[Rfam]
Rfam assigns this 76-nucleotide RNA from Flavobacterium noncentrifugens to the family "Flavo-1 RNA".
RNA sequence: CCCUAGCCCUGAUGGAAGCGGCAUCCUUUUGUGGAGCGCAGCAAAGCAAAAGAUAAAGCGGACAGCAGGAAAGGGC
Numbered sequence: 001c002c003c004u005a006g007c008c009c010u011g012a013u014g015g016a017a018g019c020g021g022c023a024u025c026c027u028u029u030u031g032u033g034g035a036g037c038g039c040a041g042c043a044a045a046g047c048a049a050a051a052g053a054u055a056a057a058g059c060g061g062a063c064a065g066c067a068g069g070a071a072a073g074g075g076c
Base pairs, nucleotide, nucleotide: 009068010067011066013064014063018059019058023054024053025052029049030048031047032046
Pairs were carried over by alignment from the consensus structure, which is taken from published work. By type it is a small RNA. The source organism's lineage runs through Bacteria, Pseudomonadati, Flavobacteriia, Flavobacteriaceae and Flavobacterium.